U7 small nuclear RNA: a 63-nucleotide RNA from Homo sapiens. Rfam's curators write: Animal histone pre-mRNAs are spliced by a different mechanism than nuclear pre-mRNAs and self-splicing introns. This processing involves the U7 snRNP, which contains only one RNA species: U7. The 5' end of U7 RNA is thought to base-pair to a conserved spacer element downstream of the cleavage site in histone pre-mRNA. This family contains a number of annotated U7 pseudogenes. The match comes from Rfam's covariance-model search (69 bits).
[Rfam]
RNA sequence: AAGUGUUAACAGCUCUUUUAGAAUUUGUCUAGCAGGUUUUCUGGUUUUUAUUGGAAAACCUUC
Numbered sequence: 001a002a003g004u005g006u007u008a009a010c011a012g013c014u015c016u017u018u019u020a021g022a023a024u025u026u027g028u029c030u031a032g033c034a035g036g037u038u039u040u041c042u043g044g045u046u047u048u049u050a051u052u053g054g055a056a057a058a059c060c061u062u063c
Stems, first nucleotide, its partner, number of pairs: 035060011